[Rfam]
RNA sequence: GGGAAGUGAUGAGUGGUCAAAACUCGCAUUGUAUGCGAGAAUUGGGUGUCCAGCCUAAGCCUGGUUACGACAAUAUGGGCACUCCCAUUUGUUACCGAUCUGAUCCC
Numbered sequence: 001g002g003g004a005a006g007u008g009a010u011g012a013g014u015g016g017u018c019a020a021a022a023c024u025c026g027c028a029u030u031g032u033a034u035g036c037g038a039g040a041a042u043u044g045g046g047u048g049u050c051c052a053g054c055c056u057a058a059g060c061c062u063g064g065u066u067a068c069g070a071c072a073a074u075a076u077g078g079g080c081a082c083u084c085c086c087a088u089u090u091g092u093u094a095c096c097g098a099u100c101u102g103a104u105c106c107c
Stems, first nucleotide, its partner, number of pairs: 001107004014097004023039005044084007062077002064074002
Shown here is a 107-nucleotide RNA sequence from Papaver somniferum, a member of the family "Small nucleolar RNA Z279/snoR105/snoR108". The organism belongs to Papaver, within Eukaryota. This family includes the plant snoRNAs known as Z279, snoR105 and snoR108. The family is grouped with related families in Rfam's "snoU13 clan". The literature on the family includes a 2002 paper in Curr Biol by Marker et al., "Experimental RNomics: identification of 140 candidates for small non-messenger RNAs in the plant Arabidopsis thaliana".